Rfam assigns this 281-nucleotide sequence from Herpetosiphon geysericola to the family "glmS glucosamine-6-phosphate activated ribozyme aptamer". Taxonomically the source falls in Herpetosiphon (Bacteria, Bacillati, Herpetosiphonales, Herpetosiphonaceae). Pairs were carried over by alignment from the consensus structure, which is taken from published work.
[Rfam]
RNA sequence: UACCCAAUUUAAGCGCAACGGUCUGAAUCAAGCUACGCUGCGAUUCAGAAAACGAGGUAGAGGUUCCUCGCCGCAGGGCGAGUGCUAACCUAGCAACUCCAAGUUGGUGCGUGAGGCUGGCGGCUCGAAUAGCCUUCCCGCUGCUGCCCACGGAAACAGGCUUGGCUCGGUUGAUGGGGAAAAGCGAAUAAUCAGCGGAUGCCUCUUGGGUACACCACAGCCCAAAAGGGUGUUGCAAAACUUGUUGGCAACAGCAAGCACAAUCAGCACCUUGUGGCCAG
Number, nucleotide and partner (000 for none) at each position: 001u000002a000003c000004c000005c000006a000007a000008u000009u000010u000011a000012a000013g000014c000015g000016c000017a000018a000019c000020g000021g000022u049023c048024u047025g046026a045027a044028u043029c042030a000031a000032g000033c000034u000035a000036c000037g000038c000039u000040g000041c000042g029043a028044u027045u026046c025047a024048g023049a022050a000051a000052a000053c000054g000055a000056g000057g000058u000059a206060g205061a204062g203063g202064u000065u000066c000067c000068u195069c000070g193071c000072c000073g000074c000075a000076g000077g000078g000079c000080g000081a000082g000083u000084g000085c000086u000087a000088a000089c000090c000091u000092a000093g000094c000095a000096a000097c000098u000099c000100c000101a000102a000103g000104u000105u000106g000107g000108u000109g000110c000111g000112u000113g000114a000115g000116g000117c000118u000119g000120g000121c000122g000123g000124c000125u000126c000127g000128a000129a000130u000131a000132g000133c000134c000135u000136u000137c000138c000139c000140g000141c000142u000143g000144c000145u000146g000147c000148c000149c000150a000151c000152g000153g000154a000155a000156a000157c000158a000159g000160g000161c000162u000163u000164g000165g000166c000167u000168c000169g000170g000171u000172u000173g000174a000175u000176g000177g000178g000179g000180a000181a000182a000183a000184g000185c000186g000187a000188a000189u000190a000191a000192u000193c070194a000195g068196c000197g000198g000199a000200u000201g000202c063203c062204u061205c060206u059207u224208g223209g222210g221211u220212a000213c000214a000215c000216c000217a000218c000219a000220g211221c210222c209223c208224a207225a000226a000227a000228g000229g271230g270231u269232g268233u267234u266235g000236c000237a000238a000239a000240a000241c258242u257243u256244g255245u254246u253247g252248g000249c000250a000251a000252c247253a246254g245255c244256a243257a242258g241259c000260a000261c000262a000263a000264u000265c000266a234267g233268c232269a231270c230271c229272u000273u000274g000275u000276g000277g000278c000279c000280a000281g000
This entry contains a glucosamine-6-phosphate activated ribozyme that is found in the mRNA for GlmS. GlmS is an enzyme that uses fructose-6-phosphate and glutamine to generate glucosamine-6-phosphate.